[Rfam]
pan motif: an 87-nucleotide sequence from Pectinatus brassicae. Rfam classes the family as a cis-regulatory element. The match comes from Rfam's covariance-model search (49 bits).
RNA sequence: UGAACAGUAUCUUAUGAACUGUAUCGCAAUAUGCCGUUUAACUAUCAUACGAUUAUAGCGCUUGGAUCACUGUGACCGAGACGAAUG
Number, nucleotide and partner (000 for none) at each position: 001u026002g025003a024004a022005c021006a020007g019008u018009a000010u017011c016012u000013u000014a000015u000016g011017a010018a008019c007020u006021g005022u004023a000024u003025c002026g001027c000028a000029a000030u000031a000032u000033g000034c000035c000036g000037u000038u000039u000040a000041a000042c000043u000044a000045u000046c000047a000048u000049a000050c000051g000052a000053u000054u000055a000056u000057a000058g000059c083060g082061c080062u079063u078064g077065g076066a000067u075068c074069a073070c000071u000072g000073u069074g068075a067076c065077c064078g063079a062080g061081a000082c060083g059084a000085a000086u000087g000